This 127-nucleotide RNA sequence from Litchfieldia salsa belongs to the Rfam family "PyrR binding site".
Lineage of the source: Bacteria > Bacilli > Caryophanales > Bacillaceae > Litchfieldia.
About the family: This family represents the PyrR binding site and terminator structure.
RNA sequence: AAGCCUUUUAAACAAGUCCUGUGAGACUUAUAAGGGUGUCGUUUUGGCAUAAAGGGAUAUUAUUAUCCAAUUUUAACCAAGACACAAAAACACCCUAUCUGCUAAUUAAGAUAGGGUGUUUUUUUAU
Numbered sequence: 001a002a003g004c005c006u007u008u009u010a011a012a013c014a015a016g017u018c019c020u021g022u023g024a025g026a027c028u029u030a031u032a033a034g035g036g037u038g039u040c041g042u043u044u045u046g047g048c049a050u051a052a053a054g055g056g057a058u059a060u061u062a063u064u065a066u067c068c069a070a071u072u073u074u075a076a077c078c079a080a081g082a083c084a085c086a087a088a089a090a091c092a093c094c095c096u097a098u099c100u101g102c103u104a105a106u107u108a109a110g111a112u113a114g115g116g117u118g119u120u121u122u123u124u125u126a127u
Stems, first nucleotide, its partner, number of pairs: 003037006014029005046077001049074001051072002055068005087122014